[Rfam]
RNA sequence: AUAAUGAUACUUCUAUCGAGUCUUAGGUAUCCCAAAGACGGUGGUCUCCACAAAGGGGAAGAUGAAAUUCCUAUGA
Number, nucleotide and partner (000 for none) at each position: 001a000002u000003a000004a000005u000006g000007a000008u000009a000010c000011u000012u073013c044014u043015a042016u041017c040018g039019a000020g000021u000022c000023u000024u000025a000026g000027g000028u000029a000030u000031c000032c000033c000034a000035a000036a000037g000038a000039c018040g017041g016042u015043g014044g013045u059046c058047u057048c000049c055050a000051c000052a000053a000054a000055g049056g000057g047058g046059a045060a072061g071062a000063u000064g000065a000066a000067a000068u000069u000070c000071c061072u060073a012074u000075g000076a000